RNA sequence: GCGGAUGGCUGGAUGGCCGCGCGGCCCUGUGUCGCGAGGAAAGUCCGGACUCCACAAAACGACGGUGCCGGGUAACGCCCGGCCGGGGAAACCCGAGGGAAAGCGCCACAGAAAACAGACCGCCUGUGCUUGCACGGGUAAGGGUGAAACGGCGGUGUAAGAGACCACCGCGCUGUUGGCAACAACAGUGGCACGGCAAGCCCCACCGGGAGCAAUGCCAAAUAGGGACCUUGCGGGCGCAUGCCCAGGGCUGUUUUGGUCCAGAGGUCCGGGUUGGCAGCUAGAGCCUGUUGGUAACAGCAGGCGCAGAGGAAUGGUCAUCCAGAGGCGGGGAAACCCGCCUUGGACAAAAUCCGGCUUACAGGCCGUCCGCGCAU
Dot-bracket structure: ((((((((((((((((((.((((((.....))))))....[[[.[[[[[((((....[[.[.((((((((((.....)))))(((((....)))).)((...(((((............(((((((((....)))))))..)).......((.(((.......))).))(((((((((....)))))))).)..)))..)))))))))))))...((((......((((((................(((((.].]])))))..)))))).....))))......((((((((....))))))))..........)))))))..............................]]]]]]]].).))))))))))....
The record is a 377-nucleotide RNA from Profundibacter amoris, which matches "Bacterial RNase P class A" in Rfam. Rfam classes the family as a ribozyme. A reference for the family is Frank and Pace (1998), "Ribonuclease P: unity and diversity in a tRNA processing ribozyme", Annu Rev Biochem. NCBI's taxonomy places the organism under Bacteria, Pseudomonadati, Pseudomonadota, Rhodobacterales, Profundibacter.